bZIP non canonical Hac1/Xbp1 intron: a 73-nucleotide sequence from Penicillium canariense. On this family, see Iracane et al., mSphere 2018: "Identification of an Exceptionally Long Intron in the HAC1 Gene of Candida parapsilosis". Rfam 15.1 lists 1,325 matches to the family in 1,320 species. Rfam's curators write: bZIP intron RNA is a non-canonical intron that was first reported in HAC1 gene in yeast and XBP1 gene in Metazoa. Pairs were carried over by alignment from the consensus structure, which was predicted with RNAfold.
RNA sequence: GGCCUCCCCCGACGUGACACAACAUCCUGCCGCGAUGUUGUGCCCCCUAGACCUGCAGUGUCCGUCGGCGGCC
Number, nucleotide and partner (000 for none) at each position: 001g073002g072003c071004c070005u000006c068007c000008c000009c000010c000011g066012a065013c064014g063015u000016g000017a000018c000019a000020c000021a039022a038023c037024a036025u035026c034027c000028u000029g000030c000031c000032g000033c000034g026035a025036u024037g023038u022039u021040g000041u000042g000043c000044c000045c000046c000047c000048u000049a000050g062051a061052c060053c000054u000055g000056c000057a000058g000059u000060g052061u051062c050063c014064g013065u012066c011067g000068g006069c000070g004071g003072c002073c001